This 108-nucleotide sequence from Olea europaea belongs to the Rfam family "Fusobacteriales-1 RNA". The base pairs follow the family's consensus structure, which is taken from published work. A search with the family's covariance model found it, with a score of 56 bits.

RNA sequence: AAAAGCUUUUAGCAACGUUCAUUGAACGUUGCGGAAAGUCACUUUUCGCAACGUGCGUUUGAACGUUGCGAAAAGGUCUUUUUUUUGCAACGUGCGUUUGAACGUUGC
Numbered sequence: 001a002a003a004a005g006c007u008u009u010u011a012g013c014a015a016c017g018u019u020c021a022u023u024g025a026a027c028g029u030u031g032c033g034g035a036a037a038g039u040c041a042c043u044u045u046u047c048g049c050a051a052c053g054u055g056c057g058u059u060u061g062a063a064c065g066u067u068g069c070g071a072a073a074a075g076g077u078c079u080u081u082u083u084u085u086u087g088c089a090a091c092g093u094g095c096g097u098u099u100g101a102a103c104g105u106u107g108c
Stems, first nucleotide, its partner, number of pairs: 012032007042057001044055001048069007081096001083094001087108007
The source organism's lineage runs through Eukaryota, Mesangiospermae, Pentapetalae, asterids and Olea europaea.